[Rfam]
RNA: Selenocysteine transfer RNA
RNA sequence: GGAGGUGGUAGAGUCCUGGUGGGCUCCGCGGUCUUCAAAACCGUAAGCAGGGCGCUAGUACCGUUCUGGGUGGGUUCGAUUCCCAUGCACCUCC
Numbered sequence: 001g002g003a004g005g006u007g008g009u010a011g012a013g014u015c016c017u018g019g020u021g022g023g024c025u026c027c028g029c030g031g032u033c034u035u036c037a038a039a040a041c042c043g044u045a046a047g048c049a050g051g052g053c054g055c056u057a058g059u060a061c062c063g064u065u066c067u068g069g070g071u072g073g074g075u076u077c078g079a080u081u082c083c084c085a086u087g088c089a090c091c092u093c094c
Stems, first nucleotide, its partner, number of pairs: 001094007011026006028044005048068005071085004